[Rfam]
A member of the RNA family "c-di-GMP-I riboswitch aptamer" from Bacillus yapensis, 104 nucleotides long. For this family Rfam cites "Riboswitches in Eubacteria Sense the Second Messenger Cyclic Di-GMP" (Sudarsan et al., Science, 2008). The match comes from Rfam's covariance-model search (76 bits). Lineage of the source: Bacteria > Bacillati > Bacillota > Caryophanales > Bacillus.

RNA sequence: CUACGAUAAUAGCAAACUUAUUGAAAAAUAAGGACGCAAAGCUACGGAUCUAAGGCUGUAUUACCUGAAUGAGGAAAUAAAGCUAUGACCGCCGGGUUACCGAA
Numbered sequence: 001c002u003a004c005g006a007u008a009a010u011a012g013c014a015a016a017c018u019u020a021u022u023g024a025a026a027a028a029u030a031a032g033g034a035c036g037c038a039a040a041g042c043u044a045c046g047g048a049u050c051u052a053a054g055g056c057u058g059u060a061u062u063a064c065c066u067g068a069a070u071g072a073g074g075a076a077a078u079a080a081a082g083c084u085a086u087g088a089c090c091g092c093c094g095g096g097u098u099a100c101c102g103a104a
Stems, first nucleotide, its partner, number of pairs: 012037002017032006040098004045094003049088002055083003